[Rfam]
RNA sequence: CUCUUCAGAUCAGAAGGUGAUUGUGGCUUUGAAUAGACUAAAACAGCCACAGCACUGCCUGGUCAGAAAGAG
Numbered sequence: 001c002u003c004u005u006c007a008g009a010u011c012a013g014a015a016g017g018u019g020a021u022u023g024u025g026g027c028u029u030u031g032a033a034u035a036g037a038c039u040a041a042a043a044c045a046g047c048c049a050c051a052g053c054a055c056u057g058c059c060u061g062g063u064c065a066g067a068a069a070g071a072g
Stems, first nucleotide, its partner, number of pairs: 005067002008064006016056004021052008029042002032039001
The family of this 72-nucleotide sequence from Geotrypetes seraphini is "mir-383 microRNA precursor family". Pairs were carried over by alignment from the consensus structure, which was predicted with RNAalifold. Rfam 15.1 lists 520 matches to the family in 511 species.